[Rfam]
RNA sequence: GAGGCCUAUGAUGAUUUGAAUUUGCCUACAUUGUCUGAUUGUGUAAUAUAUGACAGAGAUAUAUAAUUAGUUCUGAGGCCUUC
Dot-bracket structure: (.((((......................................................................)))).).

The record is an 83-nucleotide RNA from Salix dunnii, which matches "Small nucleolar RNA SNORD34" in Rfam. Rfam links the family to the GO terms nucleolus and RNA processing. The family's RNA type in Rfam is C/D-box small nucleolar RNA. Pairs were carried over by alignment from the consensus structure, which was predicted with PFOLD. For this family Rfam cites "Purified box C/D snoRNPs are able to reproduce site-specific 2'-O-methylation of target RNA in vitro" (Galardi et al., Mol Cell Biol, 2002). Lineage of the source: Eukaryota > Streptophytina > Tracheophyta > Euphyllophyta > Salix. snoRNA U34 is found in intron 5 of the ribosomal protein L13a gene in humans.